[Rfam]
RNA sequence: GUGCAAAUGAUGGAAAAUACCAUUUCACAGAGAAAAGUGAUGCUAACAAAGGAACCACUGAUGCAC
Number, nucleotide and partner (000 for none) at each position: 001g066002u065003g064004c063005a062006a000007a000008u000009g000010a000011u000012g000013g000014a000015a000016a000017a000018u000019a000020c000021c000022a000023u000024u000025u000026c000027a000028c000029a000030g000031a000032g000033a000034a000035a000036a000037g000038u000039g000040a000041u000042g000043c000044u000045a000046a000047c000048a000049a000050a000051g000052g000053a000054a000055c000056c000057a000058c000059u000060g000061a000062u005063g004064c003065a002066c001
The record is a 66-nucleotide RNA sequence from Phascolarctos cinereus, which matches "Small nucleolar RNA SNORD42" in Rfam. A reference for the family is Galardi et al. (2002), "Purified box C/D snoRNPs are able to reproduce site-specific 2'-O-methylation of target RNA in vitro", Mol Cell Biol. It is annotated as a C/D-box small nucleolar RNA. The base pairs follow the family's consensus structure, which was predicted with PFOLD. snoRNA U42 is found in intron 3 of the ribosomal protein L23a (RPL23a) gene in humans and is also present in mice.